RNA sequence: AACACGUUCCUUAGAUCCACCUCUAGGGGGUGCUCUUGCUUUGGCACUGCUCUGUCUCUCUGUUUGAGGCUCUGCAGCUCCAGAGUGGAGGCUCCCAGCAGCUUUUGGCUGUACAGUUGGAGGUGCUUGAGUCAUUGGCGUGUGAAAGCAGUCUACCUGCCCAUUCAGCCAAUAGCUGCACUGGCACCUUUUGUAGGUCUUCACCAGGGCAGAUGAGCUGGAAGGCGGACAAC
Numbered sequence: 001a002a003c004a005c006g007u008u009c010c011u012u013a014g015a016u017c018c019a020c021c022u023c024u025a026g027g028g029g030g031u032g033c034u035c036u037u038g039c040u041u042u043g044g045c046a047c048u049g050c051u052c053u054g055u056c057u058c059u060c061u062g063u064u065u066g067a068g069g070c071u072c073u074g075c076a077g078c079u080c081c082a083g084a085g086u087g088g089a090g091g092c093u094c095c096c097a098g099c100a101g102c103u104u105u106u107g108g109c110u111g112u113a114c115a116g117u118u119g120g121a122g123g124u125g126c127u128u129g130a131g132u133c134a135u136u137g138g139c140g141u142g143u144g145a146a147a148g149c150a151g152u153c154u155a156c157c158u159g160c161c162c163a164u165u166c167a168g169c170c171a172a173u174a175g176c177u178g179c180a181c182u183g184g185c186a187c188c189u190u191u192u193g194u195a196g197g198u199c200u201u202c203a204c205c206a207g208g209g210c211a212g213a214u215g216a217g218c219u220g221g222a223a224g225g226c227g228g229a230c231a232a233c
Stems, first nucleotide, its partner, number of pairs: 002143007010131005018125008026096005034089003040084005047077004054070001057069004098112006157228005164222001166220004176212004181207004186198003
Small nucleolar RNA SNORA53: a 233-nucleotide sequence from Astyanax mexicanus. Taxonomically the source falls in Astyanax (Eukaryota, Chordata, Euteleostomi, Osteoglossocephalai). About the family: The snoRNA ACA53 belongs to the H/ACA family of pseudouridylation guide snoRNAs. Rfam 15.1 lists 1,090 matches to the family in 800 species. It scores 101 bits against the family's covariance model.